RNA: MIR807 microRNA precursor family
Organism: Oryza sativa
RNA sequence: AACCACACUAUCUAUGAAUGGAUUCACCUGCGAGAUGACGUGGCUGUUUCACCUAGGACGAGGACAUGACAUCCUAUUACCAGCCAUCGCACGAAAUUAAUAGUAUGCCACGUCGAUGGAACAACCAUGUCAUCUCACCGGUGAAUCCAUUCAUCGAUAGUGUGGUU
Numbered sequence: 001a002a003c004c005a006c007a008c009u010a011u012c013u014a015u016g017a018a019u020g021g022a023u024u025c026a027c028c029u030g031c032g033a034g035a036u037g038a039c040g041u042g043g044c045u046g047u048u049u050c051a052c053c054u055a056g057g058a059c060g061a062g063g064a065c066a067u068g069a070c071a072u073c074c075u076a077u078u079a080c081c082a083g084c085c086a087u088c089g090c091a092c093g094a095a096a097u098u099a100a101u102a103g104u105a106u107g108c109c110a111c112g113u114c115g116a117u118g119g120a121a122c123a124a125c126c127a128u129g130u131c132a133u134c135u136c137a138c139c140g141g142u143g144a145a146u147c148c149a150u151u152c153a154u155c156g157a158u159a160g161u162g163u164g165g166u167u
Stems, first nucleotide, its partner, number of pairs: 001167007009159004014154002017151003021147008030138001032136002035133005041127003045123004051117001057114002065112001070107003074103006086097002